[Rfam]
RNA sequence: AUCCGUUUUAAAAAGAAUCAUGCUUUGAAUGAUUUACAUGUGAAGCAUUGUUGUUAAUGUUAUUAGUUCCCCUCGCUAUCCUGUUCGUCAAUUUUAAUGAUGUUACUUAGGACGUCGGGGAACAAAUAU
Numbered sequence: 001a002u003c004c005g006u007u008u009u010a011a012a013a014a015g016a017a018u019c020a021u022g023c024u025u026u027g028a029a030u031g032a033u034u035u036a037c038a039u040g041u042g043a044a045g046c047a048u049u050g051u052u053g054u055u056a057a058u059g060u061u062a063u064u065a066g067u068u069c070c071c072c073u074c075g076c077u078a079u080c081c082u083g084u085u086c087g088u089c090a091a092u093u094u095u096a097a098u099g100a101u102g103u104u105a106c107u108u109a110g111g112a113c114g115u116c117g118g119g120g121a122a123c124a125a126a127u128a129u
Stems, first nucleotide, its partner, number of pairs: 004059003010054001012052002019050001020048007029041003066123007074114002079112005088100003